[Rfam]
RNA sequence: AAAAAUUUAAUAAGAAGCACUCAUAUAAUCCCGAGAAUAUGGCUCGGGAGUCUCUACCGAACAACCGUAAAUUGUUCGACUAUGAGUGAAAGUGUACCUA
Numbered sequence: 001a002a003a004a005a006u007u008u009a010a011u012a013a014g015a016a017g018c019a020c021u022c023a024u025a026u027a028a029u030c031c032c033g034a035g036a037a038u039a040u041g042g043c044u045c046g047g048g049a050g051u052c053u054c055u056a057c058c059g060a061a062c063a064a065c066c067g068u069a070a071a072u073u074g075u076u077c078g079a080c081u082a083u084g085a086g087u088g089a090a091a092g093u094g095u096a097c098c099u100a
Base pairs, nucleotide, nucleotide: 018088019087020086021085022084023083024082025081029049030048031047032046033045034044035043058078059077060076061075062074063073064072